[Rfam]
This 79-nucleotide RNA sequence from Chitinophaga oryziterrae belongs to the Rfam family "Fluoride riboswitch aptamer (crcB RNA motif)".
On this family, see Baker et al., Science 2012: "Widespread genetic switches and toxicity resistance proteins for fluoride".
Its family is annotated with response to fluoride and positive regulation of gene expression in the Gene Ontology.
RNA sequence: CCUAUACCAGGAAAUGGUGUCUUCCUGCACAAGAACCGUCCGGGCGCUCAAAAGCCGGUCUGAUGGCGCCUACAAAUAG
Numbered sequence: 001c002c003u004a005u006a007c008c009a010g011g012a013a014a015u016g017g018u019g020u021c022u023u024c025c026u027g028c029a030c031a032a033g034a035a036c037c038g039u040c041c042g043g044g045c046g047c048u049c050a051a052a053a054g055c056c057g058g059u060c061u062g063a064u065g066g067c068g069c070c071u072a073c074a075a076a077u078a079g
Stems, first nucleotide, its partner, number of pairs: 010025004016070006038060001040058004